[Rfam]
RNA: Peptidase-S11 RNA
RNA sequence: GCUAUGAUGCCUUUGCCAGCCUGUUUCGCUCGUUGUAACGGGAGGCGUACGUCAUCACGUGCAUGAAUAAUUAUCAGAAGUCU
Dot-bracket structure: ..............(((..((((((.(.......).)))))).)))((((((....)))))).....................